[Rfam]
RNA sequence: UUUUUAUUCCGAGUUUGCGUUGCAAACUCGUUUAUUUAUUGCGCUUUCUCAACCGGUGGUUUGCGAAAGCGCUGCUAAAAACUUUUUCGGAAGCUUAAGCUUCCUGCAAAAGUUUUUAUAGGA
Numbered sequence: 001u002u003u004u005u006a007u008u009c010c011g012a013g014u015u016u017g018c019g020u021u022g023c024a025a026a027c028u029c030g031u032u033u034a035u036u037u038a039u040u041g042c043g044c045u046u047u048c049u050c051a052a053c054c055g056g057u058g059g060u061u062u063g064c065g066a067a068a069g070c071g072c073u074g075c076u077a078a079a080a081a082c083u084u085u086u087u088c089g090g091a092a093g094c095u096u097a098a099g100c101u102u103c104c105u106g107c108a109a110a111a112g113u114u115u116u117u118a119u120a121g122g123a
Base pairs, nucleotide, nucleotide: 011029012028013027014026015025016024017023018022041072042071043070044069045068046067047066048065077117078116079115080114081113082112083111084110085109086108089104090103091102092101093100094099

The record is a 123-nucleotide sequence from Treponema maltophilum, which matches "TD-1 RNA" in Rfam. For this family Rfam cites "Identification of 22 candidate structured RNAs in bacteria using the CMfinder comparative genomics pipeline" (Weinberg et al., Nucleic Acids Res, 2007). The organism belongs to Treponema maltophilum, within Bacteria.